[Rfam]
RNA: Small nucleolar RNA snoR26
RNA sequence: GAAGCAUCUGUGAUGUAUUACCUCUACAUUCAUCCUUGCACUUUGAGGAAAGGUUGCCCCUUUCUAUUGAAGAAAACAUUGGGGAAUCUAUUCUGAGAUGCUC
Number, nucleotide and partner (000 for none) at each position: 001g000002a000003a102004g101005c100006a099007u098008c097009u000010g000011u000012g000013a000014u000015g000016u000017a000018u000019u000020a000021c000022c000023u000024c000025u000026a000027c000028a000029u000030u000031c000032a000033u000034c000035c000036u000037u000038g000039c000040a000041c000042u000043u000044u000045g000046a000047g000048g000049a000050a000051a000052g000053g000054u000055u000056g000057c000058c000059c000060c000061u000062u000063u000064c000065u000066a000067u000068u000069g000070a000071a000072g000073a000074a000075a000076a000077c000078a000079u000080u000081g000082g000083g000084g000085a000086a000087u000088c000089u000090a000091u000092u000093c000094u000095g000096a000097g008098a007099u006100g005101c004102u003103c000